[Rfam]
RNA sequence: UAAGCUGGCAGUCAGCCAUCGCUUAGUUUUAUAAUUAAAGCUUAAGAGGAAAGUCCGAGCUCCAAUAAGAACAUAAUGCUAGGUAAUGCCUAGGGGUUUUAAACCUAAGAAAGUGUCGCAGAAAAUUACCGCCGUAAAAGGUAAGGGUGAAAAGGUGAGGUAAGAGCUCACCGCUUAUUUAGCAAUAAAUACAGGCAAGAUAAACCUCAUUAGGAGCAAGAUCAAGUAUGUAAGCACCCUUUGUUCUUGAGGACAUGCUUACGGGUAGAUCGCACGAUUUUUUUAGCGAUAAAAAAAUAAGAGAGAUGAUGGCAUAGUACAGAACUCGGCUUAUGGGUGUCAGCUUAAUUU
Numbered sequence: 001u002a003a004g005c006u007g008g009c010a011g012u013c014a015g016c017c018a019u020c021g022c023u024u025a026g027u028u029u030u031a032u033a034a035u036u037a038a039a040g041c042u043u044a045a046g047a048g049g050a051a052a053g054u055c056c057g058a059g060c061u062c063c064a065a066u067a068a069g070a071a072c073a074u075a076a077u078g079c080u081a082g083g084u085a086a087u088g089c090c091u092a093g094g095g096g097u098u099u100u101a102a103a104c105c106u107a108a109g110a111a112a113g114u115g116u117c118g119c120a121g122a123a124a125a126u127u128a129c130c131g132c133c134g135u136a137a138a139a140g141g142u143a144a145g146g147g148u149g150a151a152a153a154g155g156u157g158a159g160g161u162a163a164g165a166g167c168u169c170a171c172c173g174c175u176u177a178u179u180u181a182g183c184a185a186u187a188a189a190u191a192c193a194g195g196c197a198a199g200a201u202a203a204a205c206c207u208c209a210u211u212a213g214g215a216g217c218a219a220g221a222u223c224a225a226g227u228a229u230g231u232a233a234g235c236a237c238c239c240u241u242u243g244u245u246c247u248u249g250a251g252g253a254c255a256u257g258c259u260u261a262c263g264g265g266u267a268g269a270u271c272g273c274a275c276g277a278u279u280u281u282u283u284u285a286g287c288g289a290u291a292a293a294a295a296a297a298u299a300a301g302a303g304a305g306a307u308g309a310u311g312g313c314a315u316a317g318u319a320c321a322g323a324a325c326u327c328g329g330c331u332u333a334u335g336g337g338u339g340u341c342a343g344c345u346u347a348a349u350u351u
Stems, first nucleotide, its partner, number of pairs: 001347010011334001015313006022046004026041005051332003055329005060216004071248001074212005079093005095105004108207002113205002115201003129146002131142003154172006173196001174194002176191006220271004230262006241255001244252002278297008
RNA: Bacterial RNase P class A
Organism: Borreliella burgdorferi